The record is a 110-nucleotide RNA sequence from Methylopila turkensis, which matches "Guanidine-I riboswitch aptamer" in Rfam. The family has 100 seed sequences and 1,509 matches in Rfam 15.1. This family represents a conserved RNA structure found upstream of the ykkC and yxkD genes in Bacillus subtilis and related genes in other bacteria. The function of this family is unclear although it has been suggested that it may function to switch on efflux pumps and detoxification systems in response to harmful environmental molecules. For this family Rfam cites "Structural Basis for Ligand Binding to the Guanidine-I Riboswitch" (Reiss et al., Structure, 2017).
RNA sequence: UGAGUUGGCGGCUAGGGUUCCGCGUCGCGUGAAGCGGCGGCUGGUCCGAGAGCCGCCGCCGGACCGGGAGACAUCCGGACCGGACACGGCGGGCGAAAAUCCCGGGAGAC
Numbered sequence: 001u002g003a004g005u006u007g008g009c010g011g012c013u014a015g016g017g018u019u020c021c022g023c024g025u026c027g028c029g030u031g032a033a034g035c036g037g038c039g040g041c042u043g044g045u046c047c048g049a050g051a052g053c054c055g056c057c058g059c060c061g062g063a064c065c066g067g068g069a070g071a072c073a074u075c076c077g078g079a080c081c082g083g084a085c086a087c088g089g090c091g092g093g094c095g096a097a098a099a100u101c102c103c104g105g106g107a108g109a110c
Base pairs, nucleotide, nucleotide: 007057008056009055010054011053012052015047016046020044021043022041023039024038025037026036027035028034059083060082061081062080064078065077066076085105087108091103092102093101